[Rfam]
The record is a 79-nucleotide sequence from Sphingomonas lacunae, which matches "Makes More Granules Regulator RNA (mmgR)" in Rfam. The base pairs follow the family's consensus structure. The organism belongs to Sphingomonas, within Bacteria. The match comes from Rfam's covariance-model search (45 bits). From the family's description: SuhB later renamed mmgR (makes more granules regulator) was a putative non-coding RNA found multiple times in the Agrobacterium tumefaciens genome and related alpha-proteobacteria. Other non-coding RNAs uncovered in the same analysis include: speF, ybhL, metA, and serC.Several studies inSinorhizobium meliloti showed that suhB element is indeed a non-coding RNA:firstly it was detected on Northern blot and called Sm8RNA, secondly in an RNAseq study referred to as SmelC689.The mutant phenotype's (strain lacking the small RNA) cytoplasm contains higher content of polyhydroxybutyrate (PBH)storage granules than wild type strain. The sRNA is required to limit the PBH intracellular accumulation when the nitrogen-fixing Sinorhizobium meliloti is under condition of surplus carbon in relation to nitrogen. It has been renamed to mmgR. Further study confirmed that mmgR fine-tunes the regulation of PBH storage.Northern blot confirmed the expression of the sRNA in other rhizobia species. MmgR homologues were found in most alpha-proteobacteria.
RNA sequence: GGGUCGGGCCUUUCAGGCAUCCUCUCCUAAAGAAACUUUCAUCGGCCGCCCCUUCGGGUGGCCGUUUUUUUUGCCUGUA
Numbered sequence: 001g002g003g004u005c006g007g008g009c010c011u012u013u014c015a016g017g018c019a020u021c022c023u024c025u026c027c028u029a030a031a032g033a034a035a036c037u038u039u040c041a042u043c044g045g046c047c048g049c050c051c052c053u054u055c056g057g058g059u060g061g062c063c064g065u066u067u068u069u070u071u072u073g074c075c076u077g078u079a
Base pairs, nucleotide, nucleotide: 008018009017010016011015043064044063045062046061047060048059049058050057051056